[Rfam]
RNA sequence: GGAUGUGAGGGCGAUCUGGCUGUGACAUCUGUCACCCCAUUGAUCGCCAGGGUUGAUUUGGCUGAUGUGGCUGGCUAGGCAGGGGUUCCCUUCCUCCCUCACUGCUCUAUGUGUGUCCCUCCUGUAGCUGCGUGCUCAGUUGAAGAGGACUACCUUCCCCGAAUUGAGGAGGACCAGUGUUCAGUCAAGGUUAUAUGAGUAGCUGCACUCCAGUGCUAGAACCUCCAAACAAGCUCUCAAAUUUCCCAGCGCAGAAUAUUGACCAUAAUCUUUAAAAUAAAUUCUGGUUACCUUAAUUUUUUU
Numbered sequence: 001g002g003a004u005g006u007g008a009g010g011g012c013g014a015u016c017u018g019g020c021u022g023u024g025a026c027a028u029c030u031g032u033c034a035c036c037c038c039a040u041u042g043a044u045c046g047c048c049a050g051g052g053u054u055g056a057u058u059u060g061g062c063u064g065a066u067g068u069g070g071c072u073g074g075c076u077a078g079g080c081a082g083g084g085g086u087u088c089c090c091u092u093c094c095u096c097c098c099u100c101a102c103u104g105c106u107c108u109a110u111g112u113g114u115g116u117c118c119c120u121c122c123u124g125u126a127g128c129u130g131c132g133u134g135c136u137c138a139g140u141u142g143a144a145g146a147g148g149a150c151u152a153c154c155u156u157c158c159c160c161g162a163a164u165u166g167a168g169g170a171g172g173a174c175c176a177g178u179g180u181u182c183a184g185u186c187a188a189g190g191u192u193a194u195a196u197g198a199g200u201a202g203c204u205g206c207a208c209u210c211c212a213g214u215g216c217u218a219g220a221a222c223c224u225c226c227a228a229a230c231a232a233g234c235u236c237u238c239a240a241a242u243u244u245c246c247c248a249g250c251g252c253a254g255a256a257u258a259u260u261g262a263c264c265a266u267a268a269u270c271u272u273u274a275a276a277a278u279a280a281a282u283u284c285u286g287g288u289u290a291c292c293u294u295a296a297u298u299u300u301u302u303u
Stems, first nucleotide, its partner, number of pairs: 001108003005102007013093002018090002024087003028083006035074002037070003043066003046062003116172002118169004122139003127135002140162003147158003202270001204268001211261005223251001225249001233247001295303002